Rfam assigns this 146-nucleotide sequence from Sphaerisporangium melleum to the family "c-di-AMP riboswitch aptamer (ydaO/yuaA leader)". The match comes from Rfam's covariance-model search (74 bits). Taxonomically the source falls in Sphaerisporangium (Bacteria, Bacillati, Streptosporangiales, Streptosporangiaceae). Its family is annotated with cyclic-di-AMP binding and regulation of gene expression in the Gene Ontology.
RNA sequence: ACGGCACGCCCGCCGAAUCCGCCUCUCGCGGAACCGGGGACCCACAUCCCGGGGUGAAUCGGAGCGCCGGCCCCCAGAGGCGCGCCCGUAGGGUACUUUCCACCCGAACCCGUCAGCUCACCCGGUAGGCGUACGGAAGCAAGGAG
Numbered sequence: 001a002c003g004g005c006a007c008g009c010c011c012g013c014c015g016a017a018u019c020c021g022c023c024u025c026u027c028g029c030g031g032a033a034c035c036g037g038g039g040a041c042c043c044a045c046a047u048c049c050c051g052g053g054g055u056g057a058a059u060c061g062g063a064g065c066g067c068c069g070g071c072c073c074c075c076a077g078a079g080g081c082g083c084g085c086c087c088g089u090a091g092g093g094u095a096c097u098u099u100c101c102a103c104c105c106g107a108a109c110c111c112g113u114c115a116g117c118u119c120a121c122c123c124g125g126u127a128g129g130c131g132u133a134c135g136g137a138a139g140c141a142a143g144g145a146g
Stems, first nucleotide, its partner, number of pairs: 011131004018032003033126006043051001052111003060088003091105004